[Rfam]
RNA sequence: GACCACCAAAGUGUCAACAGCUACAUCUUCUUACACUGACUGUAUAAAAAGAGGAAGCAAAAUAAACCUUCCUCAUAUAUACUUUAGCUCAGGUCCUAUACUAGUCUAUAUUGUGAAUGGGGAGACAUGG
Number, nucleotide and partner (000 for none) at each position: 001g000002a000003c057004c000005a000006c054007c053008a000009a000010a000011g000012u000013g000014u000015c000016a000017a000018c042019a041020g040021c000022u000023a000024c000025a000026u035027c000028u033029u000030c000031u000032u000033a028034c000035a026036c000037u000038g000039a000040c020041u019042g018043u000044a000045u000046a000047a000048a000049a000050a000051g000052a000053g007054g006055a000056a000057g003058c000059a000060a000061a000062a000063u000064a000065a000066a000067c000068c000069u000070u000071c122072c121073u120074c119075a118076u117077a000078u000079a000080u000081a000082c000083u000084u000085u108086a107087g106088c000089u104090c000091a102092g000093g101094u100095c000096c000097u000098a000099u000100a094101c093102u091103a000104g089105u000106c087107u086108a085109u000110a000111u000112u000113g000114u000115g000116a000117a076118u075119g074120g073121g072122g071123a000124g000125a000126c000127a000128u000129g000130g000
Source information: The family of this 130-nucleotide RNA from Castor canadensis is "Small nucleolar RNA SNORA51". The base pairs follow the family's consensus structure, which was predicted with PFOLD. Rfam 15.1 lists 2,121 matches to the family in 210 species. Gene Ontology terms of the family: nucleolus and RNA processing. NCBI's taxonomy places the organism under Eukaryota, Gnathostomata, Eutheria, Boreoeutheria, Castor. Rfam describes the family as follows. ACA51 is a member of the H/ACA class of snoRNA that guide the sites of modification of uridines to pseudouridines. By type it is an H/ACA-box small nucleolar RNA. The match comes from Rfam's covariance-model search (68 bits).